[Rfam]
RNA sequence: UUCCAAACGGGAAAGGUUAUAGCGAUUAUGAUAUAUAAAGCCAUAAGCGUAUAGCUUUUCCCCUUUGGUG
Numbered sequence: 001u002u003c004c005a006a007a008c009g010g011g012a013a014a015g016g017u018u019a020u021a022g023c024g025a026u027u028a029u030g031a032u033a034u035a036u037a038a039a040g041c042c043a044u045a046a047g048c049g050u051a052u053a054g055c056u057u058u059u060c061c062c063c064u065u066u067g068g069u070g
Stems, first nucleotide, its partner, number of pairs: 003068005009062003013058002017054005026046005

mir-965 microRNA precursor family: a 70-nucleotide sequence from Cephus cinctus. On this family, see Huang et al., Bioorg Khim 2012: "The regulation of silkworm fibroin L chain production by miRNA-965 and miRNA-1926 in insect cells". Rfam links the family to the GO terms RISC complex and miRNA-mediated post-transcriptional gene silencing.